Ribosomal protein L20 leader: a 128-nucleotide sequence from Amphibacillus marinus.
This family is a putative r-protein leader autoregulatory structure found in B. subtilis and other low-GC Gram-positive bacteria. It is located in the 5' untranslated regions of mRNAs encoding initiation factor 3 followed by ribosomal proteins L35 and L20 (infC-rpmI-rplT). A Rho-independent transcription terminator structure that is probably involved in regulation is included at the 3' end.
It is annotated as a cis-regulatory leader.
Its family is annotated with regulation of gene expression in the Gene Ontology.
A reference for the family is Zengel and Lindahl (1994), "Diverse mechanisms for regulating ribosomal protein synthesis in Escherichia coli", Prog Nucleic Acid Res Mol Biol.
Taxonomically the source falls in Amphibacillus (Bacteria, Bacillati, Bacilli, Caryophanales).
It scores 64 bits against the family's covariance model.

RNA sequence: AUCGACAAGUAGAGGCACCCGCUUCUCGCCUGAACGACACAGUAAUGUAGUUGUCAGGUUAGCAUAGGAUUCUGAAAUAAUGACAGAAUACGUGUGGGUGCAUAAAGUACCGACACUUUUUUAUUUUG
Numbered sequence: 001a002u003c004g005a006c007a008a009g010u011a012g013a014g015g016c017a018c019c020c021g022c023u024u025c026u027c028g029c030c031u032g033a034a035c036g037a038c039a040c041a042g043u044a045a046u047g048u049a050g051u052u053g054u055c056a057g058g059u060u061a062g063c064a065u066a067g068g069a070u071u072c073u074g075a076a077a078u079a080a081u082g083a084c085a086g087a088a089u090a091c092g093u094g095u096g097g098g099u100g101c102a103u104a105a106a107g108u109a110c111c112g113a114c115a116c117u118u119u120u121u122u123a124u125u126u127u128g
Stems, first nucleotide, its partner, number of pairs: 011026006028059003036052003039048002093115003097111005